[Rfam]
RNA: Bacterial RNase P class A
Organism: Kocuria dechangensis
RNA sequence: CAGGUCGGCCGGGUGACCGCGGGCCGCGGCCGUUCCGGCCGUGGCGCGAGGAAAGUCCGGGCUCCGCAGAGCAGGAUGAUGGGCAACACCCACUCGGGGAAACCCGCAGGACAGUGCCACAGAAAACAGACCGCCCGCCCCGGCUCGUCCGGGUUGCGGGUCAGGGUGAAAAGGUGGUGUAAGAGACCACCAGCGCACCGGGUGACCGGUGCGGCUCGGUAAACCCCAUCCGGAGCAAGGUCAGACAGGGUGCGCCCGAGGGCUGCUCGCCCGAGCACCCGGGUAGACCGCUCGAGCCCGUCGGCAACGGCGGGCCUAGAUGGAUGGUCACCAGCACGGCCCGGGCGACCGGCCGUGCCACAGAACCCGGCUUACAGGCCGGCCUGUCCC
Numbered sequence: 001c002a003g004g005u006c007g008g009c010c011g012g013g014u015g016a017c018c019g020c021g022g023g024c025c026g027c028g029g030c031c032g033u034u035c036c037g038g039c040c041g042u043g044g045c046g047c048g049a050g051g052a053a054a055g056u057c058c059g060g061g062c063u064c065c066g067c068a069g070a071g072c073a074g075g076a077u078g079a080u081g082g083g084c085a086a087c088a089c090c091c092a093c094u095c096g097g098g099g100a101a102a103c104c105c106g107c108a109g110g111a112c113a114g115u116g117c118c119a120c121a122g123a124a125a126a127c128a129g130a131c132c133g134c135c136c137g138c139c140c141c142g143g144c145u146c147g148u149c150c151g152g153g154u155u156g157c158g159g160g161u162c163a164g165g166g167u168g169a170a171a172a173g174g175u176g177g178u179g180u181a182a183g184a185g186a187c188c189a190c191c192a193g194c195g196c197a198c199c200g201g202g203u204g205a206c207c208g209g210u211g212c213g214g215c216u217c218g219g220u221a222a223a224c225c226c227c228a229u230c231c232g233g234a235g236c237a238a239g240g241u242c243a244g245a246c247a248g249g250g251u252g253c254g255c256c257c258g259a260g261g262g263c264u265g266c267u268c269g270c271c272c273g274a275g276c277a278c279c280c281g282g283g284u285a286g287a288c289c290g291c292u293c294g295a296g297c298c299c300g301u302c303g304g305c306a307a308c309g310g311c312g313g314g315c316c317u318a319g320a321u322g323g324a325u326g327g328u329c330a331c332c333a334g335c336a337c338g339g340c341c342c343g344g345g346c347g348a349c350c351g352g353c354c355g356u357g358c359c360a361c362a363g364a365a366c367c368c369g370g371c372u373u374a375c376a377g378g379c380c381g382g383c384c385u386g387u388c389c390c
Base pairs, nucleotide, nucleotide: 001386002385003384004383005382006381007380008379009378010377011375012332013331014330015329016328017327018326020048021047023045024044025043026042027041028040029039030038053373054372055371057370058369059368060367061366062235063234064233065232069268070267071266072265074231075230076229077228078227080092081091082090083089094108095106096105097104098103109226110225114224115223116220117219118218131165132164133161134160135159136158137157138156141153173191174190175189176188177187178186193215194213195212196211197210198209199208200207201206239289240288241287242286248280249279250278251277252276253275260272261271262270263269296315297314298313299312300311301310302309303308